[Rfam]
RNA: Small nucleolar RNA SNORA79
Organism: Rattus norvegicus
RNA sequence: UAAUGACUAUUCCUCCUGUUGCCUGUAGGCAUGGCACUAGGAUUUCAGGGCAUCAUAAAUUAAAGUUGAUUUUUUUUUUACUCAGAGAAUAUCAAGAUAUUGGGAUUAUCUAUGUAUUCUCUGAAAUUUGCGGGGCCACACAAUA
Numbered sequence: 001u002a003a004u005g006a007c008u009a010u011u012c013c014u015c016c017u018g019u020u021g022c023c024u025g026u027a028g029g030c031a032u033g034g035c036a037c038u039a040g041g042a043u044u045u046c047a048g049g050g051c052a053u054c055a056u057a058a059a060u061u062a063a064a065g066u067u068g069a070u071u072u073u074u075u076u077u078u079u080a081c082u083c084a085g086a087g088a089a090u091a092u093c094a095a096g097a098u099a100u101u102g103g104g105a106u107u108a109u110c111u112a113u114g115u116a117u118u119c120u121c122u123g124a125a126a127u128u129u130g131c132g133g134g135g136c137c138a139c140a141c142a143a144u145a
Base pairs, nucleotide, nucleotide: 001055003053004052005051007049008048014042015041016040017039018038020036021035022034023033068137070135071134072133073132082124083123084122085121086120087119088118089117090116091115095111096110097109098108099107